[Rfam]
RNA: MIR2118 microRNA precursor family
Organism: Digitaria exilis
RNA sequence: UAGCUAAUGAGGUUGAGAGUGAUUCUAAGAGCAAUCGGCAUGGGAACAUGGAGGAAAGCUUAAAUUUUUCUUUCAUCUACAACUAGUGGGUGGAGAUUACUUCAGCGUUUUCACAAUGCCUCCCAUGCCUAUUGCUCUUAGUCACUCUUUCCCCUUCCUUGUGGCU
Numbered sequence: 001u002a003g004c005u006a007a008u009g010a011g012g013u014u015g016a017g018a019g020u021g022a023u024u025c026u027a028a029g030a031g032c033a034a035u036c037g038g039c040a041u042g043g044g045a046a047c048a049u050g051g052a053g054g055a056a057a058g059c060u061u062a063a064a065u066u067u068u069u070c071u072u073u074c075a076u077c078u079a080c081a082a083c084u085a086g087u088g089g090g091u092g093g094a095g096a097u098u099a100c101u102u103c104a105g106c107g108u109u110u111u112c113a114c115a116a117u118g119c120c121u122c123c124c125a126u127g128c129c130u131a132u133u134g135c136u137c138u139u140a141g142u143c144a145c146u147c148u149u150u151c152c153c154c155u156u157c158c159u160u161g162u163g164g165c166u
Stems, first nucleotide, its partner, number of pairs: 009157004015151003019147001021145001025141009035131001037129009047118003051114001054112006